[Rfam]
RNA sequence: CCCCGGGCCAGUCACCCCCAACGGUGACCAGUCCAUCUGUAAGGAUGGGAGAA
Numbered sequence: 001c002c003c004c005g006g007g008c009c010a011g012u013c014a015c016c017c018c019c020a021a022c023g024g025u026g027a028c029c030a031g032u033c034c035a036u037c038u039g040u041a042a043g044g045a046u047g048g049g050a051g052a053a
Stems, first nucleotide, its partner, number of pairs: 011028006033048006
The record is a 53-nucleotide RNA from an Alphaproteobacteria bacterium, which matches "serC leader" in Rfam. Rfam links the family to the GO term regulation of gene expression. About the family: This family is a putative regulatory RNA structure that is found upstream of the serC-serA operon in some alpha-proteobacteria. The final stem of the structure overlaps the ribosome binding site of the serC reading frame. The match comes from Rfam's covariance-model search (44 bits). The pairing is the family consensus, mapped onto this sequence.